[Rfam]
RNA sequence: AAAAGAGCAAUACCAAUCUUCUUGCUAGAACAAGAAAUUGAUUAUUGCUCCUUUCAGU
Numbered sequence: 001a002a003a004a005g006a007g008c009a010a011u012a013c014c015a016a017u018c019u020u021c022u023u024g025c026u027a028g029a030a031c032a033a034g035a036a037a038u039u040g041a042u043u044a045u046u047g048c049u050c051c052u053u054u055c056a057g058u
Stems, first nucleotide, its partner, number of pairs: 001054003005050008014040001019036006
RNA: Plastid-psbA-3 3UTR RNA